[Rfam]
RNA: MAT2A 3'UTR stem loop F
Organism: Nannospalax galili
RNA sequence: CAUCAGAGAAAGCUGAUUUGGCUAGUGUGGUACACAGAAGCCUGCUUGCUUACAUGCUUACUUCAUG
Number, nucleotide and partner (000 for none) at each position: 001c067002a066003u065004c000005a000006g063007a062008g061009a000010a059011a058012g057013c056014u000015g050016a000017u048018u000019u000020g046021g045022c044023u000024a000025g041026u040027g033028u032029g000030g000031u000032a028033c027034a000035c000036a000037g000038a000039a000040g026041c025042c000043u000044g022045c021046u020047u000048g017049c000050u015051u000052a000053c000054a000055u000056g013057c012058u011059u010060a000061c008062u007063u006064c000065a003066u002067g001